PrrF RNA: a 150-nucleotide sequence from Pseudomonas graminis. Rfam links the family to the GO term sRNA-mediated gene silencing. Lineage of the source: Bacteria > Pseudomonadati > Pseudomonadota > Gammaproteobacteria > Pseudomonas. It is annotated as a small RNA. About the family: PrrF RNA is a small RNA involved in iron homeostasis and is found exclusively in Pseudomonas species. The base pairs follow the family's consensus structure, which is taken from published work.

RNA sequence: UUGACUUACAAAUGAGAAUCACUAUGAUUAUCACAUCCGGUCGCGAGACUGGCCGAUAAACUGAAAGGCUCCUUGGUUCGGACUCUCAGAUUAUCUCCUCAUCAGGCUAAUCACGGUUUUUGACCCGGCUCUUUGCCGGGUCUUUUUUUG
Numbered sequence: 001u002u003g004a005c006u007u008a009c010a011a012a013u014g015a016g017a018a019u020c021a022c023u024a025u026g027a028u029u030a031u032c033a034c035a036u037c038c039g040g041u042c043g044c045g046a047g048a049c050u051g052g053c054c055g056a057u058a059a060a061c062u063g064a065a066a067g068g069c070u071c072c073u074u075g076g077u078u079c080g081g082a083c084u085c086u087c088a089g090a091u092u093a094u095c096u097c098c099u100c101a102u103c104a105g106g107c108u109a110a111u112c113a114c115g116g117u118u119u120u121u122g123a124c125c126c127g128g129c130u131c132u133u134u135g136c137c138g139g140g141u142c143u144u145u146u147u148u149u150g
Stems, first nucleotide, its partner, number of pairs: 034055001037052006061089004066084002069080001097106003122142008